A member of the RNA family "Plant signal recognition particle RNA" from Rhamnella rubrinervis, 290 nucleotides long. NCBI's taxonomy places the organism under Eukaryota, Euphyllophyta, Spermatophyta, Gunneridae, Rhamnella. Rfam classes the family as a non-coding RNA gene. The match comes from Rfam's covariance-model search (202 bits). The literature on the family includes a 2002 paper in Curr Opin Struct Biol by Wild et al., "Towards the structure of the mammalian signal recognition particle".
RNA sequence: GCCGAGCUCAGUUACGCGGGCCUGUUACUCGAGUGAUGGGACAUUGGUCCAGCCCAUUGAAUCGGAUUCGUAGUGGCUAUUUCUGGCCCGCCCAUUCCAAGCCAAGAGUCGGACCGUGUGACCCUGGCGAAGGCUUGGGUGACCCGGCUCAUAGUGUGGAGGGCACCGCGUGAGGCUGGCUUCACAGAGCAGCGACUACCUCCCGCUCUUGGCAGUGGAAGGAUAACGGGUCGGUGCUAUGCGGGUUCAUCAUGGUUCAGUGGGCAGUUCCUAAUCGGACCAUCAUUUUU
Numbered sequence: 001g002c003c004g005a006g007c008u009c010a011g012u013u014a015c016g017c018g019g020g021c022c023u024g025u026u027a028c029u030c031g032a033g034u035g036a037u038g039g040g041a042c043a044u045u046g047g048u049c050c051a052g053c054c055c056a057u058u059g060a061a062u063c064g065g066a067u068u069c070g071u072a073g074u075g076g077c078u079a080u081u082u083c084u085g086g087c088c089c090g091c092c093c094a095u096u097c098c099a100a101g102c103c104a105a106g107a108g109u110c111g112g113a114c115c116g117u118g119u120g121a122c123c124c125u126g127g128c129g130a131a132g133g134c135u136u137g138g139g140u141g142a143c144c145c146g147g148c149u150c151a152u153a154g155u156g157u158g159g160a161g162g163g164c165a166c167c168g169c170g171u172g173a174g175g176c177u178g179g180c181u182u183c184a185c186a187g188a189g190c191a192g193c194g195a196c197u198a199c200c201u202c203c204c205g206c207u208c209u210u211g212g213c214a215g216u217g218g219a220a221g222g223a224u225a226a227c228g229g230g231u232c233g234g235u236g237c238u239a240u241g242c243g244g245g246u247u248c249a250u251c252a253u254g255g256u257u258c259a260g261u262g263g264g265c266a267g268u269u270c271c272u273a274a275u276c277g278g279a280c281c282a283u284c285a286u287u288u289u290u
Stems, first nucleotide, its partner, number of pairs: 001026001003024002006021004031288009042277001044274003047270001050267001052265001054263010064248009074239003078236002083234008092222002095220005101213009111150002114147003118143002121140004126135003158203005169194003176187003